[Rfam]
RNA sequence: GCCGGUGCUUGAUAUAGAUCCGGAACCAGCGCCCGAAGGGCUGUCCUGGCCGGGGCGGCGAUGGCAGCCUUAAGAUGCCGUUGCCGUUUACAUA
Dot-bracket structure: ...................((((..........................))))(((((((((((((.........)))))))))))))......